The family of this 422-nucleotide sequence from Arsenophonus sp. ENCA is "cspA thermoregulator". The family's RNA type in Rfam is RNA thermoregulator. NCBI's taxonomy places the organism under Bacteria, Pseudomonadati, Pseudomonadota, Enterobacterales, Arsenophonus. Rfam 15.1 lists 2,094 matches to the family in 1,285 species.

[Rfam]
RNA sequence: UACGACAUUUAAGUUAAUGUGUUAUGAGUAGCGUUAUCCUUGAUAGCCUUUCGACCGUUUCUUGCUGAGUGCUUCCAUGAAUUAAAUAGUGAUGUAGGCUUUUGUAUACCUGCCGAAAGCGGCAAUGUUUAUUAGUUAUAUAGGAAAAGGCACAUGUCUGACAAAAUGAAGGGUCAAGUGAAGUGGUUUAACGAAUCUAAAGGCUUUGGUUUCAUCACUCCUUCUGAUGGUAGCAAAGAUGUAUUCGUUCACUUCUCUGCCAUUCAAGGAAAUGGAUUCAAAACCCUGGCUGAAGGGCAAAAUGUAGAAUUUACUAUUGAAGAUGGUUCGAAAGGCCCAGCUGCAGCGAAUGUAACUGCUCUUUAAGAUUAGUUAAAUAAAUGGAUUUCUUGAAGCCUGUCGUGCAAGCGGCAGGCUUCUUU
Number, nucleotide and partner (000 for none) at each position: 001u000002a000003c000004g000005a000006c000007a000008u000009u000010u000011a000012a222013g221014u000015u000016a219017a000018u217019g216020u000021g000022u000023u000024a000025u000026g213027a212028g000029u000030a211031g210032c209033g000034u201035u200036a000037u000038c000039c000040u000041u000042g197043a196044u195045a000046g000047c193048c000049u191050u190051u000052c000053g000054a187055c186056c185057g000058u000059u000060u000061c156062u000063u154064g153065c000066u000067g151068a000069g000070u000071g000072c000073u000074u145075c144076c143077a141078u140079g139080a000081a000082u000083u000084a101085a100086a000087u098088a000089g000090u000091g000092a000093u000094g000095u000096a000097g000098g087099c000100u085101u084102u000103u000104g000105u000106a000107u000108a000109c000110c000111u000112g123113c122114c121115g000116a000117a000118a000119g000120c000121g114122g113123c112124a000125a000126u000127g000128u000129u000130u000131a000132u000133u000134a000135g000136u000137u000138a000139u079140a078141u077142a000143g076144g075145a074146a000147a000148a000149g000150g000151c067152a000153c064154a063155u000156g061157u000158c173159u172160g000161a000162c000163a000164a000165a000166a000167u000168g000169a000170a000171g000172g159173g158174u000175c000176a000177a000178g000179u000180g000181a000182a000183g000184u000185g056186g055187u054188u000189u000190a050191a049192c000193g047194a000195a044196u043197c042198u000199a000200a035201a034202g000203g000204c000205u000206u000207u000208g000209g032210u031211u030212u027213c026214a000215u000216c019217a018218c000219u016220c000221c013222u012223u000224c000225u319226g318227a317228u316229g315230g314231u000232a000233g000234c000235a000236a000237a000238g246239a245240u000241g000242u000243a000244u000245u239246c238247g000248u000249u307250c000251a305252c304253u000254u302255c000256u301257c000258u299259g298260c296261c295262a000263u000264u289265c288266a287267a000268g285269g000270a000271a000272a000273u282274g000275g000276a000277u000278u000279c000280a000281a000282a273283a000284c000285c268286c000287u266288g265289g264290c000291u000292g000293a000294a000295g261296g260297g000298c259299a258300a000301a256302a254303u000304g252305u251306a000307g249308a000309a000310u000311u000312u000313a000314c230315u229316a228317u227318u226319g225320a000321a000322g000323a000324u339325g338326g337327u000328u000329c335330g000331a000332a000333a000334g000335g329336c000337c326338c325339a324340g364341c000342u000343g361344c358345a357346g356347c000348g000349a000350a000351u000352g000353u000354a000355a000356c346357u345358g344359c000360u000361c343362u000363u000364u340365a000366a000367g387368a386369u385370u000371a000372g382373u381374u380375a000376a000377a000378u000379a000380a374381a373382u372383g000384g000385a369386u368387u367388u000389c000390u000391u000392g419393a418394a417395g416396c415397c414398u413399g412400u411401c410402g409403u408404g000405c000406a000407a000408g403409c402410g401411g400412c399413a398414g397415g396416c395417u394418u393419c392420u000421u000422u000